[Rfam]
RNA: TPP riboswitch aptamer (THI element)
Organism: Blautia liquoris
RNA sequence: AAUAUAUUUCCGGGGUGCCGCUAUGCGGCUGAGAUUGGCUUUCGGGCCUGACCCGUAUUACCUGAUUCGGUUAAUGCCGACGUAGGGAGAAGCCAUAUAUUGCAU
Numbered sequence: 001a002a003u004a005u006a007u008u009u010c011c012g013g014g015g016u017g018c019c020g021c022u023a024u025g026c027g028g029c030u031g032a033g034a035u036u037g038g039c040u041u042u043c044g045g046g047c048c049u050g051a052c053c054c055g056u057a058u059u060a061c062c063u064g065a066u067u068c069g070g071u072u073a074a075u076g077c078c079g080a081c082g083u084a085g086g087g088a089g090a091a092g093c094c095a096u097a098u099a100u101u102g103c104a105u
Base pairs, nucleotide, nucleotide: 007092008091009090010089011055012054013053014052017029018028019027020026021025037048038047039046040045061086062085063084064083067080068079069078070077